Shown here is a 113-nucleotide RNA sequence from Actinospica acidithermotolerans, a member of the family "SAM (S-adenosyl methionine) riboswitch aptamer". Its Rfam clan is "SAM clan". The base pairs follow the family's consensus structure, which is taken from published work. The match comes from Rfam's covariance-model search (113 bits). The literature on the family includes a 2008 paper in RNA by Weinberg et al., "The aptamer core of SAM-IV riboswitches mimics the ligand-binding site of SAM-I riboswitches".
RNA sequence: GGUCAUGAGUACCAGCGAUAAGCCCCGGCUCGCUGGUCGGCAACCCUUCGUCCGCGAUGGGGUGCCCCGGGUGAGGACCGGGCCGUGCGGAAGGCGUACGGCAAGCGCGGAUU
Numbered sequence: 001g002g003u004c005a006u007g008a009g010u011a012c013c014a015g016c017g018a019u020a021a022g023c024c025c026c027g028g029c030u031c032g033c034u035g036g037u038c039g040g041c042a043a044c045c046c047u048u049c050g051u052c053c054g055c056g057a058u059g060g061g062g063u064g065c066c067c068c069g070g071g072u073g074a075g076g077a078c079c080g081g082g083c084c085g086u087g088c089g090g091a092a093g094g095c096g097u098a099c100g101g102c103a104a105g106c107g108c109g110g111a112u113u
Stems, first nucleotide, its partner, number of pairs: 001079004009038001011037006021030002039066003044062003048057002082102008